[Rfam]
Source information: A member of the RNA family "TPP riboswitch aptamer (THI element)" from Mycolicibacterium tokaiense, 110 nucleotides long. The family's consensus secondary structure is taken from published work.

RNA sequence: AAACCACCACGCGGGAGCGCACGCCGAGUGCGCUGAGAGGACGGCUGGGGCCGUCGACCGUACGAACCUGACCGGGUAAUACCGGCGUAGGGAGUGCUGUGAACUACUUG
Numbered sequence: 001a002a003a004c005c006a007c008c009a010c011g012c013g014g015g016a017g018c019g020c021a022c023g024c025c026g027a028g029u030g031c032g033c034u035g036a037g038a039g040g041a042c043g044g045c046u047g048g049g050g051c052c053g054u055c056g057a058c059c060g061u062a063c064g065a066a067c068c069u070g071a072c073c074g075g076g077u078a079a080u081a082c083c084g085g086c087g088u089a090g091g092g093a094g095u096g097c098u099g100u101g102a103a104c105u106a107c108u109u110g
Base pairs, nucleotide, nucleotide: 006098008096009095010094011061012060013059014058017033018032019031020030021029040055041054042053043052044051067091068090069089070088072085073084074083075082